[Rfam]
Histone 3' UTR stem-loop: a 46-nucleotide sequence from Esox lucius. The source organism's lineage runs through Eukaryota, Chordata, Vertebrata, Neopterygii and Esox. The mRNAs of metazoan histone genes lack a poly-A tail. 3' end processing occurs at a site between a highly conserved stem-loop (modelled by this family) and a purine rich region around 20 nts downstream (the histone downstream element, or HDE). The stem-loop is bound by a 31 kDa stem-loop binding protein (SLBP - also termed the histone hairpin binding protein, or HBP). Together with U7 snRNA binding of the HDE, SLBP binding nucleate s the formation of the processing complex. The histone 3' UTR stem-loop is also involved in nucleocytoplasmic transport of the mRNA, and in stability regulation and translation efficiency in the cytoplasm. On this family, see Williams and Marzluff, Nucleic Acids Res 1995: "The sequence of the stem and flanking sequences at the 3' end of histone mRNA are critical determinants for the binding of the stem-loop binding protein".

RNA sequence: CCAAAGGCUCUUUUAAGAGCCACCCAUAUCCGCUGAAAAAGAGUCU
Numbered sequence: 001c002c003a004a005a006g007g008c009u010c011u012u013u014u015a016a017g018a019g020c021c022a023c024c025c026a027u028a029u030c031c032g033c034u035g036a037a038a039a040a041g042a043g044u045c046u
Stems, first nucleotide, its partner, number of pairs: 006021006
Dot-bracket structure: .....((((((....)))))).........................